[Rfam]
RNA sequence: ACGGAAGCUUGGCGAGGCCAAGACCCAGCCGGAAGAGAAGGCUAGAUCUCCCGACCCAAGCUCCUAGCACGGAUACCGAGCACCCACGCGGAGCACAUGCCGCGGAAUAGGCAAAAGUGUUGCGGACCUGCGUAGUUUCGAAAAGCGGACGGCCACGACGGCCCUUUGGGUGGGGUUGCAGCCGUAGCGCAUCGCAAAGACGCCGAGGUCACCCACGCAACCCACAUCGCACGCUUGGUCACUCGGGGUCCGUGCUAGCGGGCGGCGAACCGGACAUUGUCCGGGACGCCGCCCGAUUUCUUUU
Numbered sequence: 001a002c003g004g005a006a007g008c009u010u011g012g013c014g015a016g017g018c019c020a021a022g023a024c025c026c027a028g029c030c031g032g033a034a035g036a037g038a039a040g041g042c043u044a045g046a047u048c049u050c051c052c053g054a055c056c057c058a059a060g061c062u063c064c065u066a067g068c069a070c071g072g073a074u075a076c077c078g079a080g081c082a083c084c085c086a087c088g089c090g091g092a093g094c095a096c097a098u099g100c101c102g103c104g105g106a107a108u109a110g111g112c113a114a115a116a117g118u119g120u121u122g123c124g125g126a127c128c129u130g131c132g133u134a135g136u137u138u139c140g141a142a143a144a145g146c147g148g149a150c151g152g153c154c155a156c157g158a159c160g161g162c163c164c165u166u167u168g169g170g171u172g173g174g175g176u177u178g179c180a181g182c183c184g185u186a187g188c189g190c191a192u193c194g195c196a197a198a199g200a201c202g203c204c205g206a207g208g209u210c211a212c213c214c215a216c217g218c219a220a221c222c223c224a225c226a227u228c229g230c231a232c233g234c235u236u237g238g239u240c241a242c243u244c245g246g247g248g249u250c251c252g253u254g255c256u257a258g259c260g261g262g263c264g265g266c267g268a269a270c271c272g273g274a275c276a277u278u279g280u281c282c283g284g285g286a287c288g289c290c291g292c293c294c295g296a297u298u299u300c301u302u303u304u
Stems, first nucleotide, its partner, number of pairs: 003064002006062007016052002021049002025045001027043004065257009076246003080242001084238003088234003093230002098113004119221006125210005130203004136197002139194003145190003149185005159178007259295009270284003
This 304-nucleotide RNA from Mycolicibacterium smegmatis belongs to the Rfam family "Mycobacterium smegmatis small RNA 1".
Rfam links the family to the GO term RNA polymerase binding.
The family's consensus secondary structure was predicted with CMfinder.
The literature on the family includes a 2014 paper in Nucleic Acids Res by Hnilicova et al., "Ms1, a novel sRNA interacting with the RNA polymerase core in mycobacteria".
Mycobacterium smegmatis small RNA 1 is highly expressed during stationary phase of growth. Ms1 RNA directly interacts with RNA polymerase (RNAP), but in a different way than 6S, which is present in other bacteria. Ms1 does not require the presence of the main sigma factor for RNAP interaction.
The sequence is in the family's curated seed alignment.